[Rfam]
RNA sequence: UCUGGUAUGGGGGAACUACUUACCAACAUGGUUUUUCUAUGCCAACAAGAAGGAAAUAUCCGUCGGAUUCACGGUGAGGCAGUGUGGAGACCUGCCGUAGUGUAUCUGGAAUUUGCUUUCCGGUUGUAAGAACGCAUGCGAAAUGGUAGGUGCGUUUAGAGCCAGAAAUAAUGGCA
Numbered sequence: 001u002c003u004g005g006u007a008u009g010g011g012g013g014a015a016c017u018a019c020u021u022a023c024c025a026a027c028a029u030g031g032u033u034u035u036u037c038u039a040u041g042c043c044a045a046c047a048a049g050a051a052g053g054a055a056a057u058a059u060c061c062g063u064c065g066g067a068u069u070c071a072c073g074g075u076g077a078g079g080c081a082g083u084g085u086g087g088a089g090a091c092c093u094g095c096c097g098u099a100g101u102g103u104a105u106c107u108g109g110a111a112u113u114u115g116c117u118u119u120c121c122g123g124u125u126g127u128a129a130g131a132a133c134g135c136a137u138g139c140g141a142a143a144u145g146g147u148a149g150g151u152g153c154g155u156u157u158a159g160a161g162c163c164a165g166a167a168a169u170a171a172u173g174g175c176a
Base pairs, nucleotide, nucleotide: 008039009038010037011036012035013034014033015032016031017030018029060074061073062072063071064165066163068161069160070159075099076098078096079095080094081093082092084091085090102127103126104125106123107122108121109120110119130157131156132155133154134153135152136151137150
Dot-bracket structure: .......(((((((((((..........)))))))))))....................(((([.[.[[[))))((.(((((.((....))))))).))..(((.(((((........))))).)))..((((((((............)))))))).]]].].]...........

malK-I RNA: a 176-nucleotide sequence.